This 212-nucleotide RNA from Allobosea sp. TND4EK4 belongs to the Rfam family "permuted transfer-messenger RNA".
Bacterial tmRNA, also known as 10Sa RNA or SsrA, is named for its dual tRNA and mRNA-like properties.
[Rfam]
RNA sequence: GGCGAUAAACAGACUUCGAAAUAAGCCUUUCGGACCCGGGGGCAGUACCCGGCGCCUCCACCCAAGCCCUUGGCGAUCAAGGGUUUCGGCGGGGGCGAAACAGGAUCGACGAGGGUGUAAAGGUUGUCCUUUUGCUCGGCAUGGUUCCGCCGUUAUCGGGCCAAAGCAUAGUUGCCAACGACAACAAUGCUCGGGUCGCCGUCGCCGCGUAA
Numbered sequence: 001g002g003c004g005a006u007a008a009a010c011a012g013a014c015u016u017c018g019a020a021a022u023a024a025g026c027c028u029u030u031c032g033g034a035c036c037c038g039g040g041g042g043c044a045g046u047a048c049c050c051g052g053c054g055c056c057u058c059c060a061c062c063c064a065a066g067c068c069c070u071u072g073g074c075g076a077u078c079a080a081g082g083g084u085u086u087c088g089g090c091g092g093g094g095g096c097g098a099a100a101c102a103g104g105a106u107c108g109a110c111g112a113g114g115g116u117g118u119a120a121a122g123g124u125u126g127u128c129c130u131u132u133u134g135c136u137c138g139g140c141a142u143g144g145u146u147c148c149g150c151c152g153u154u155a156u157c158g159g160g161c162c163a164a165a166g167c168a169u170a171g172u173u174g175c176c177a178a179c180g181a182c183a184a185c186a187a188u189g190c191u192c193g194g195g196u197c198g199c200c201g202u203c204g205c206c207g208c209g210u211a212a
Stems, first nucleotide, its partner, number of pairs: 001136005014126001017123001026115003030112003036052005053097007137152004